RNA: Bacterial small subunit ribosomal RNA, nucleotides 38 to 637
RNA sequence: GUCCAAAUGCUUGACACAUGCUAAUCGUACGUUUAAUUUAAUAUAUGAUGUAAAAUAUCCUUAAUUUCAUUAAAAGUGGUGUACAGGUGAGUAUAUGAUAUUUUGGCUGCCUUAAAGUAAGGUUUAUAAAUACCUUAUAUCUUUAUAUAUUACAUUUCAACUGUAAUAUAAAAAAAUUGAUGAUGAAAGGAAAGUAAUUUCCGCUUUAAGAGGACAAUAAAUAUUUCGGAUAGGUAGUAAUUAAGGUAAUGGCCUAAUUAGCUUAAAAUUCCGUAGUCGAGGCUGAGAGGUCGAUCGAUCACAUUGGGUCUGAAAAAACCCCAAUACGUAUAGUACAGCAGUGGGGAAUAUUGGUCAAUAGCCUAACGGCUGAACCAGCAAUUUGGGAGAAUGAAUAGCUUCGGCUAAUUAUACUUGGCUGUCUAAUUUAUUAUAUUUAAUUCCAAAAGAUUUAAAUAUAAUAGGUUAUUCAUUUUAACCUUAGUUAAUACUUAAUGGUUAAUUAAUUUACCAUUUCUAUAUGAGUAAGAGGAUAUUUAUUCUCAUGGACAAGUAUAAGAUCGAUUUUAUCGAAUAAAGUUCUAGAUAGAAUACUGAUUA
Numbered sequence: 001g002u003c004c005a006a007a008u009g010c011u012u013g014a015c016a017c018a019u020g021c022u023a024a025u026c027g028u029a030c031g032u033u034u035a036a037u038u039u040a041a042u043a044u045a046u047g048a049u050g051u052a053a054a055a056u057a058u059c060c061u062u063a064a065u066u067u068c069a070u071u072a073a074a075a076g077u078g079g080u081g082u083a084c085a086g087g088u089g090a091g092u093a094u095a096u097g098a099u100a101u102u103u104u105g106g107c108u109g110c111c112u113u114a115a116a117g118u119a120a121g122g123u124u125u126a127u128a129a130a131u132a133c134c135u136u137a138u139a140u141c142u143u144u145a146u147a148u149a150u151u152a153c154a155u156u157u158c159a160a161c162u163g164u165a166a167u168a169u170a171a172a173a174a175a176a177u178u179g180a181u182g183a184u185g186a187a188a189g190g191a192a193a194g195u196a197a198u199u200u201c202c203g204c205u206u207u208a209a210g211a212g213g214a215c216a217a218u219a220a221a222u223a224u225u226u227c228g229g230a231u232a233g234g235u236a237g238u239a240a241u242u243a244a245g246g247u248a249a250u251g252g253c254c255u256a257a258u259u260a261g262c263u264u265a266a267a268a269u270u271c272c273g274u275a276g277u278c279g280a281g282g283c284u285g286a287g288a289g290g291u292c293g294a295u296c297g298a299u300c301a302c303a304u305u306g307g308g309u310c311u312g313a314a315a316a317a318a319c320c321c322c323a324a325u326a327c328g329u330a331u332a333g334u335a336c337a338g339c340a341g342u343g344g345g346g347a348a349u350a351u352u353g354g355u356c357a358a359u360a361g362c363c364u365a366a367c368g369g370c371u372g373a374a375c376c377a378g379c380a381a382u383u384u385g386g387g388a389g390a391a392u393g394a395a396u397a398g399c400u401u402c403g404g405c406u407a408a409u410u411a412u413a414c415u416u417g418g419c420u421g422u423c424u425a426a427u428u429u430a431u432u433a434u435a436u437u438u439a440a441u442u443c444c445a446a447a448a449g450a451u452u453u454a455a456a457u458a459u460a461a462u463a464g465g466u467u468a469u470u471c472a473u474u475u476u477a478a479c480c481u482u483a484g485u486u487a488a489u490a491c492u493u494a495a496u497g498g499u500u501a502a503u504u505a506a507u508u509u510a511c512c513a514u515u516u517c518u519a520u521a522u523g524a525g526u527a528a529g530a531g532g533a534u535a536u537u538u539a540u541u542c543u544c545a546u547g548g549a550c551a552a553g554u555a556u557a558a559g560a561u562c563g564a565u566u567u568u569a570u571c572g573a574a575u576a577a578a579g580u581u582c583u584a585g586a587u588a589g590a591a592u593a594c595u596g597a598u599u600a
Base pairs, nucleotide, nucleotide: 002387003386004385005384006383007382008380009379010345015343016342017341019340020339021338024080025079026078029077030076032073033072087302088301089300097225098224099223100222101221102220103219107213111210112209113208114207115206116205117204119136120135121134122133143183144182145181146180149177150176151175189202190201191200227273228272229271233263234262235261238260239259240258241257242256243255245253276299277298278297279296281292282291283290284289304323306321307320308319309318326334327333351377353376354375355374359372360371361370362369363368